RNA sequence: AGGUCGAAGUUUGAGGCCAUAGCAGAAGCACUUAUGGUGCGGCUGUCAGUUUCUAAUGAAGCUGCAAAUCCUGGU
Dot-bracket structure: ...............(((..[.[[[.[(((.......))))))...(((((((....)))))))....].]]].]
This 75-nucleotide RNA from Crocodylus porosus belongs to the Rfam family "Mammalian CPEB3 ribozyme". About the family: The mammalian CPEB3 ribozyme is a self cleaving RNA located in the second intron of the CPEB3 gene which belongs to a family of genes regulating messenger RNA polyadenylation.